[Rfam]
RNA sequence: AGGGCUGCGGACCUGGCACACGGUGUAGGCCUCUGUGUGAUAUAGAUACAGCUACAUUGUCUGCUGGGUUUCACAGUUCUACC
Numbered sequence: 001a002g003g004g005c006u007g008c009g010g011a012c013c014u015g016g017c018a019c020a021c022g023g024u025g026u027a028g029g030c031c032u033c034u035g036u037g038u039g040a041u042a043u044a045g046a047u048a049c050a051g052c053u054a055c056a057u058u059g060u061c062u063g064c065u066g067g068g069u070u071u072c073a074c075a076g077u078u079c080u081a082c083c
Base pairs, nucleotide, nucleotide: 013067014066015065016064017063018062020060021059022058023057024056025055026054027053028052033051034050035049036048

Overview:
Rfam assigns this 83-nucleotide sequence from Neogobius melanostomus to the family "mir-221 microRNA precursor family". A reference for the family is Yao et al. (2008), "MicroRNA profile of Marek's disease virus-transformed T-cell line MSB-1: predominance of virus-encoded microRNAs", J Virol. The organism belongs to Neogobius, within Eukaryota. Its family is annotated with RISC complex and miRNA-mediated post-transcriptional gene silencing in the Gene Ontology.